The record is a 219-nucleotide RNA from Streptomyces sp. RKND-216, which matches "Streptomyces sRNA 4677" in Rfam. Located in the intergenic region between anti-sigma factor SCO4677 gene and a putative regulatory protein gene SCO4676. scr4677 expression requires the SCO4677 activity and scr4677 sRNA itself seem to affect the levels of the SCO4676-associated transcripts. By type it is a small RNA. It scores 66 bits against the family's covariance model.

[Rfam]
RNA sequence: GGGCUCGGUGAGCCCGGGACUCCUCCCAAGGACUCAACUGACGAAGGACUUCCCACCCGCCCGCCCUUCCCGGUGGAGUCACCCGUCAGGGUGAACCAUGCACACAGGGUGGCGAAACGGGGUUACUGUCAGCGGAGACACGCACACAAGUCGGCCCCCGGCCAGGAUUGCCGUCCCGGACGCGAGGGCCUCACCACCAAGGAAGCUGGAACCUUCCCC
Numbered sequence: 001g002g003g004c005u006c007g008g009u010g011a012g013c014c015c016g017g018g019a020c021u022c023c024u025c026c027c028a029a030g031g032a033c034u035c036a037a038c039u040g041a042c043g044a045a046g047g048a049c050u051u052c053c054c055a056c057c058c059g060c061c062c063g064c065c066c067u068u069c070c071c072g073g074u075g076g077a078g079u080c081a082c083c084c085g086u087c088a089g090g091g092u093g094a095a096c097c098a099u100g101c102a103c104a105c106a107g108g109g110u111g112g113c114g115a116a117a118c119g120g121g122g123u124u125a126c127u128g129u130c131a132g133c134g135g136a137g138a139c140a141c142g143c144a145c146a147c148a149a150g151u152c153g154g155c156c157c158c159c160g161g162c163c164a165g166g167a168u169u170g171c172c173g174u175c176c177c178g179g180a181c182g183c184g185a186g187g188g189c190c191u192c193a194c195c196a197c198c199a200a201g202g203a204a205g206c207u208g209g210a211a212c213c214u215u216c217c218c219c
Base pairs, nucleotide, nucleotide: 007198008197009196010195016070017069018068019067079094080093081092082091083090084089109133110132112130153190154189155188156187157186159184160183162182165176166175167174201217202216203215204214205213